[Rfam]
RNA: c-di-AMP riboswitch aptamer (ydaO/yuaA leader)
RNA sequence: GAUGAAUAUACGCUUAAUUUUCGAAUGGUAAAGUCGAAAAGCGGGGGAACCAUUUUUUGGGGCGAAUCGUUGUGCAUAGUACACGUAGGGAACCAUCUUUCCCGAGUCCGUCAGCUAACCUCGUCAGCAGUGGAUGGGUCAUCA
Numbered sequence: 001g002a003u004g005a006a007u008a009u010a011c012g013c014u015u016a017a018u019u020u021u022c023g024a025a026u027g028g029u030a031a032a033g034u035c036g037a038a039a040a041g042c043g044g045g046g047g048a049a050c051c052a053u054u055u056u057u058u059g060g061g062g063c064g065a066a067u068c069g070u071u072g073u074g075c076a077u078a079g080u081a082c083a084c085g086u087a088g089g090g091a092a093c094c095a096u097c098u099u100u101c102c103c104g105a106g107u108c109c110g111u112c113a114g115c116u117a118a119c120c121u122c123g124u125c126a127g128c129a130g131u132g133g134a135u136g137g138g139u140c141a142u143c144a
Stems, first nucleotide, its partner, number of pairs: 012128003018040007041124006051059002060109003068085003088103004